Rfam assigns this 152-nucleotide RNA from Lactuca saligna to the family "Small nucleolar RNA snoR2/U65". A reference for the family is Shaw et al. (1998), "Localization and processing from a polycistronic precursor of novel snoRNAs in maize", J Cell Sci. The family's RNA type in Rfam is H/ACA-box small nucleolar RNA. The family's consensus secondary structure was predicted with WAR.
RNA sequence: GGUUCGAUGCCACGUCGCCGGUAGCCAUAGUUGCAUUGACCCGCGAUGCUAUGAUUGAACCGAUAACAAGCUUUUGUGUUUCGCAUUUUUAUAGGAACCUGUGAACUGAUGAUAUCCGUUCAUUCACAGAGCCGUUUUAUGCGAUUACAACU
Numbered sequence: 001g002g003u004u005c006g007a008u009g010c011c012a013c014g015u016c017g018c019c020g021g022u023a024g025c026c027a028u029a030g031u032u033g034c035a036u037u038g039a040c041c042c043g044c045g046a047u048g049c050u051a052u053g054a055u056u057g058a059a060c061c062g063a064u065a066a067c068a069a070g071c072u073u074u075u076g077u078g079u080u081u082c083g084c085a086u087u088u089u090u091a092u093a094g095g096a097a098c099c100u101g102u103g104a105a106c107u108g109a110u111g112a113u114a115u116c117c118g119u120u121c122a123u124u125c126a127c128a129g130a131g132c133c134g135u136u137u138u139a140u141g142c143g144a145u146u147a148c149a150a151c152u
Stems, first nucleotide, its partner, number of pairs: 002060007009052001013048006020041003024034002081144005094133002099129003103125003107122002